This 65-nucleotide RNA sequence from Xanthomonas oryzae belongs to the Rfam family "Xanthomonas sRNA sX9". Rfam classes the family as a small RNA. The source organism's lineage runs through Bacteria, Pseudomonadati, Gammaproteobacteria, Lysobacterales and Xanthomonas oryzae pv. oryzae.

RNA sequence: AUGUGCCACGCGUACACCGCGGUUCGUGCGCGCCGUCCAGGGCUGCCCGCUACGUUUUGUUGGCC
Numbered sequence: 001a002u003g004u005g006c007c008a009c010g011c012g013u014a015c016a017c018c019g020c021g022g023u024u025c026g027u028g029c030g031c032g033c034c035g036u037c038c039a040g041g042g043c044u045g046c047c048c049g050c051u052a053c054g055u056u057u058u059g060u061u062g063g064c065c
Stems, first nucleotide, its partner, number of pairs: 002016005020035004025030001039060001041058002
Pairs were carried over by alignment from the consensus structure, which was predicted with RNAalifold.